[Rfam]
Nucleotides: 350
Base pairs, nucleotide, nucleotide: 001346002345003344004343005342006341007340019317020316021315022314023313024312025311026310027309028308029306034301035300036299037298038297039296042289043288044287045286046285047065048064049063050062051061053078054077055076056075058073059072111128112127113126114125115124116123117122129167130166131165132164133163134162135160136159137158138157141154142153146180147179148178149177150176184211185210186209187208188207189206190205196224197223198222199221200220227265229263230262231261232260233259234258235257236256239253241251244281245280246279247278249276250275321339322338323337324336326334
Number, partner (000 for none) and nucleotide at each position: 001346g002345g003344g004343g005342a006341c007340g008000c009000g010000u011000g012000g013000a014000u015000u016000c017000g018000a019317c020316a021315g022314g023313g024312g025311g026310u027309g028308u029306c030000a031000c032000c033000g034301c035300g036299g037298a038297a039296u040000u041000g042289c043288a044287g045286g046285u047065c048064g049063g050062g051061g052000c053078g054077c055076c056075u057000u058073c059072u060000a061051c062050c063049u064048c065047g066000u067000u068000a069000a070000a071000a072059a073058g074000u075056g076055g077054g078053c079000a080000a081000a082000a083000a084000a085000g086000u087000u088000a089000a090000c091000u092000g093000g094000c095000a096000a097000u098000a099000a100000a101000g102000a103000g104000c105000u106000a107000g108000c109000a110000c111128u112127a113126g114125c115124c116123g117122c118000u119000u120000a121000a122117g123116c124115g125114g126113c127112u128111a129167c130166g131165u132164c133163c134162u135160u136159c137158a138157u139000g140000a141154c142153c143000g144000a145000u146180c147179c148178c149177c150176g151000a152000a153142g154141g155000a156000u157138a158137u159136g160135a161000a162134a163133g164132g165131g166130c167129g168000c169000c170000a171000a172000u173000a174000g175000a176150c177149g178148g179147g180146g181000u182000g183000c184211a185210g186209c187208c188207a189206g190205u191000c192000a193000g194000a195000c196224g197223c198222c199221g200220a201000u202000a203000a204000c205190a206189c207188u208187g209186g210185c211184u212000a213000a214000a215000g216000a217000u218000a219000a220200u221199c222198g223197g224196c225000u226000a227265g228000u229263a230262g231261g232260g233259c234258c235257c236256a237000a238000g239253c240000g241251u242000c243000a244281g245280c246279c247278g248000a249276u250275c251241g252000g253239g254000g255000c256236u257235g258234g259233g260232c261231c262230u263229u264000u265227c266000g267000a268000a269000u270000a271000u272000u273000a274000a275250g276249a277000c278247c279246g280245g281244c282000u283000a284000a285046a286045c287044c288043u289042g290000u291000a292000g293000c294000a295000u296039a297038u298037u299036c300035c301034g302000a303000u304000c305000g306029g307000g308028g309027u310026g311025u312024c313023u314022u315021c316020u317019g318000g319000a320000c321339g322338g323337g324336g325000a326334g327000u328000u329000c330000g331000a332000c333000c334326c335000u336324c337323c338322c339321c340007c341006g342005u343004c344003u345002c346001c347000a348000c349000c350000a

This 350-nucleotide sequence from SAR202 cluster bacterium AC-647-P02_OGT_505m belongs to the Rfam family "transfer-messenger RNA". The match comes from Rfam's covariance-model search (161 bits). The family's consensus secondary structure is taken from published work. Rfam classes the family as a non-coding RNA gene. Clan: tRNA clan.